The family of this 149-nucleotide RNA sequence from Phyllobacterium sp. YR620 is "Alphaproteobacterial sRNA ar9". By type it is a small RNA. The match comes from Rfam's covariance-model search (103 bits). Taxonomically the source falls in Phyllobacterium (Bacteria, Pseudomonadati, Alphaproteobacteria, Hyphomicrobiales).
RNA sequence: AUAAGGAGAAAGUAAGAAAAAUUCUGCUUUCCUACGCGGUCAAAGUCUUGGGAGGAUGUGACCUGUGGCGCGAUAACACGCAGCCGCCACGCAAGUGGAUCAGGUCGGACGCGAUCUUAAAAUGCAAGGUGAAAGCCUUGCAUUUUUUU
Numbered sequence: 001a002u003a004a005g006g007a008g009a010a011a012g013u014a015a016g017a018a019a020a021a022u023u024c025u026g027c028u029u030u031c032c033u034a035c036g037c038g039g040u041c042a043a044a045g046u047c048u049u050g051g052g053a054g055g056a057u058g059u060g061a062c063c064u065g066u067g068g069c070g071c072g073a074u075a076a077c078a079c080g081c082a083g084c085c086g087c088c089a090c091g092c093a094a095g096u097g098g099a100u101c102a103g104g105u106c107g108g109a110c111g112c113g114a115u116c117u118u119a120a121a122a123u124g125c126a127a128g129g130u131g132a133a134a135g136c137c138u139u140g141c142a143u144u145u146u147u148u149u
Base pairs, nucleotide, nucleotide: 003149004148005147006146011028012027013026014025016023035113036112037111038110045057046056047055048054060106061105062104063103064102067085068084069083070081071080072079087098088097089096123142124141125140126139127138128137129136130135